[Rfam]
RNA: Small nucleolar RNA U83B
Nucleotides: 093
Base pairs, nucleotide, nucleotide: 001093002092004090005089
Number, partner (000 for none) and nucleotide at each position: 001093g002092c003000c004090g005089u006000u007000c008000a009000g010000u011000g012000a013000u014000g015000a016000g017000g018000u019000g020000u021000g022000a023000a024000a025000c026000g027000g028000g029000c030000a031000c032000u033000g034000a035000g036000c037000a038000g039000u040000a041000u042000c043000u044000g045000a046000c047000a048000c049000c050000c051000g052000u053000g054000g055000g056000g057000a058000g059000g060000a061000g062000u063000g064000g065000c066000u067000c068000u069000g070000c071000a072000c073000u074000g075000c076000a077000u078000u079000u080000c081000u082000u083000c084000u085000g086000a087000g088000a089005g090004c091000a092002g093001c